[Rfam]
RNA: Guanidine-I riboswitch aptamer
Organism: Alkalinema sp. CACIAM 70d
RNA sequence: AAUCAUCGCCUCUAGGGUUCCGGCAGCGAUCGUUUACUGUCACCUGUGACUGGUCCAAGAGAGGCAAGCCAGCAUCGGGACUGGAUGCAGCCCAAACUGGUCACACGGCGGGAAAAAAGCCCGGGAGAA
Number, nucleotide and partner (000 for none) at each position: 001a000002a000003u000004c000005a000006u000007c000008g065009c064010c063011u062012c061013u000014a000015g056016g055017g000018u000019u000020c053021c052022g050023g047024c046025a045026g044027c000028g000029a000030u000031c000032g000033u000034u000035u000036a000037c000038u000039g000040u000041c000042a000043c000044c026045u025046g024047u023048g000049a000050c022051u000052g021053g020054u000055c016056c015057a000058a000059g000060a000061g012062a011063g010064g009065c008066a000067a000068g101069c100070c099071a098072g097073c000074a000075u000076c000077g000078g000079g000080a000081c000082u000083g000084g000085a000086u000087g000088c000089a000090g000091c000092c000093c000094a000095a000096a000097c072098u071099g070100g069101u068102c000103a000104c124105a000106c127107g000108g000109c000110g122111g121112g120113a000114a000115a000116a000117a000118a000119g000120c112121c111122c110123g000124g104125g000126a000127g106128a000129a000